[Rfam]
Record summary:
The family of this 112-nucleotide RNA sequence from Neogobius melanostomus is "U5 spliceosomal RNA". The base pairs follow the family's consensus structure, which is taken from published work. The literature on the family includes a 1996 paper in J Biol Chem by Hinz et al., "Domain analysis of human U5 RNA. Cap trimethylation, protein binding, and spliceosome assembly".

RNA sequence: UGCUCUUGUUUCUCUUCAGAUCGCAUAAAUCUUUCGCCUUUUACUAAAGAUUUCCGUGGAGAGGAACAACAAGAGAUUUGACAAUUUUUGGUGCUCUGCUUAACAGUGGGGC
Numbered sequence: 001u002g003c004u005c006u007u008g009u010u011u012c013u014c015u016u017c018a019g020a021u022c023g024c025a026u027a028a029a030u031c032u033u034u035c036g037c038c039u040u041u042u043a044c045u046a047a048a049g050a051u052u053u054c055c056g057u058g059g060a061g062a063g064g065a066a067c068a069a070c071a072a073g074a075g076a077u078u079u080g081a082c083a084a085u086u087u088u089u090g091g092u093g094c095u096c097u098g099c100u101u102a103a104c105a106g107u108g109g110g111g112c
Base pairs, nucleotide, nucleotide: 003075004074005073006072008067009066010065011064012063013062014061015060016059017058018057027053028052029051030050031049032048033047034046093112094111095110096109097108098107